[Rfam]
Nucleotides: 049
Base pairs, nucleotide, nucleotide: 003049004048005047007044008043009042010041015038016037017036018035021032022031
Number, partner (000 for none) and nucleotide at each position: 001000c002000a003049g004048g005047u006000u007044c008043c009042g010041g011000u012000c013000c014000a015038c016037g017036g018035c019000g020000c021032g022031c023000u024000c025000c026000c027000g028000g029000g030000c031022g032021c033000u034000g035018g036017c037016c038015g039000a040000c041010c042009c043008g044007g045000c046000g047005a048004c049003c
Shown here is a 49-nucleotide sequence from Motilibacter peucedani, a member of the family "L31-Actinobacteria ribosomal protein leader". The base pairs follow the family's consensus structure, which is taken from published work. The source organism's lineage runs through Bacteria, Actinomycetota, Motilibacterales, Motilibacteraceae and Motilibacter. The family's RNA type in Rfam is cis-regulatory leader. A search with the family's covariance model found it, with a score of 38 bits.